The family of this 73-nucleotide RNA sequence from Thermovirga lienii is "tRNA". Taxonomically the source falls in Thermovirga lienii (Bacteria, Synergistia, Synergistales, Thermovirga). A search with the family's covariance model found it, with a score of 55 bits.

RNA sequence: GGCCCCAUCGUCUAGCGGUCUAGGACUCAGGGUUCUCAGUCCUGCAACACGGGUUCGAAUCCCGUUGGGGCUA
Number, nucleotide and partner (000 for none) at each position: 001g072002g071003c070004c069005c068006c067007a066008u000009c000010g026011u025012c024013u023014a000015g000016c000017g000018g000019u000020c000021u000022a000023g013024g012025a011026c010027u000028c044029a043030g042031g041032g040033u000034u000035c000036u000037c000038a000039g000040u032041c031042c030043u029044g028045c000046a000047a000048c000049a065050c064051g063052g062053g061054u000055u000056c000057g000058a000059a000060u000061c053062c052063c051064g050065u049066u007067g006068g005069g004070g003071c002072u001073a000

From the family's description: Transfer RNA (tRNA) molecules are approximately 80 nucleotides in length.
Rfam 15.1 lists 5,335,975 matches to the family in 14,413 species.
Rfam classes the family as a transfer RNA.